[Rfam]
Shown here is a 68-nucleotide RNA from Cicer arietinum, a member of the family "Small nucleolar RNA snoR60".
The family's RNA type in Rfam is C/D-box small nucleolar RNA.
Pairs were carried over by alignment from the consensus structure, which was predicted with PFOLD.
A search with the family's covariance model found it, with a score of 74 bits.
RNA sequence: GUGCAUAUGAUGAGUUACUCGGAUUCCCCUUCAAGACUUGGAUGAUGUAGACCCGAGAUACUGAUGCG
Numbered sequence: 001g002u003g004c005a006u007a008u009g010a011u012g013a014g015u016u017a018c019u020c021g022g023a024u025u026c027c028c029c030u031u032c033a034a035g036a037c038u039u040g041g042a043u044g045a046u047g048u049a050g051a052c053c054c055g056a057g058a059u060a061c062u063g064a065u066g067c068g
Base pairs, nucleotide, nucleotide: 002068003067004066005065
The source organism's lineage runs through Eukaryota, Streptophytina, Euphyllophyta, Gunneridae and Cicer. Gene Ontology terms of the family: nucleolus and RNA processing.